[Rfam]
RNA sequence: AGUUCAACCGGGUCGACGGCCCUGGUCACCAUGAGGUAGUUGCGAAUGGUGAUCUCGUGGCGGUUCUC
Numbered sequence: 001a002g003u004u005c006a007a008c009c010g011g012g013u014c015g016a017c018g019g020c021c022c023u024g025g026u027c028a029c030c031a032u033g034a035g036g037u038a039g040u041u042g043c044g045a046a047u048g049g050u051g052a053u054c055u056c057g058u059g060g061c062g063g064u065u066c067u068c
Base pairs, nucleotide, nucleotide: 004063005062008059011030012029013028015027016026017025035056036055038053040052041051042050043049